[Rfam]
RNA sequence: UAAGAGUAUUUGAAGUCGACUUCAACUUGUAAACUUGAAGAAUUUGAAGACUUAGUUGCAUAUUUGGAGGAUUUGAAAACUUCAACU
Numbered sequence: 001u002a003a004g005a006g007u008a009u010u011u012g013a014a015g016u017c018g019a020c021u022u023c024a025a026c027u028u029g030u031a032a033a034c035u036u037g038a039a040g041a042a043u044u045u046g047a048a049g050a051c052u053u054a055g056u057u058g059c060a061u062a063u064u065u066g067g068a069g070g071a072u073u074u075g076a077a078a079a080c081u082u083c084a085a086c087u
Stems, first nucleotide, its partner, number of pairs: 001085001004082003009077006020069005028060004038053003
MIR8024 microRNA precursor family: an 87-nucleotide RNA sequence from Solanum commersonii. It scores 61 bits against the family's covariance model. Taxonomically the source falls in Solanum (Eukaryota, Embryophyta, eudicotyledons, asterids). Pairs were carried over by alignment from the consensus structure, which was predicted with RNAalifold.